A member of the RNA family "Selenocysteine transfer RNA" from Geobacter metallireducens, 94 nucleotides long. For this family Rfam cites "Eukaryotic selenocysteine tRNA has the 9/4 secondary structure" (Mizutani and Goto, FEBS Lett, 2000).

[Rfam]
Nucleotides: 094
Stems, first nucleotide, its partner, number of pairs: 001094009011027005017022001029045005048068005071085004
Number, partner (000 for none) and nucleotide at each position: 001094g002093g003092a004091a005090g006089c007088a008087c009086g010000u011027c012026c013025g014024u015023c016000g017022c018000u019000g020000g021000u022017g023015g024014g025013c026012g027011g028000c029045c030044c031043a032042g033041u034000c035000u036000u037000c038000a039000a040000a041033a042032c043031u044030g045029g046000u047000g048068g049067g050066g051065g052064g053000g054000a055000u056000g057000a058000g059000a060000a061000a062000u063000c064052u065051c066050c067049u068048c069000g070000g071085u072084g073083g074082g075000u076000u077000c078000g079000a080000u081000u082074c083073c084072c085071a086009u087008g088007u089006g090005c091004u092003u093002c094001c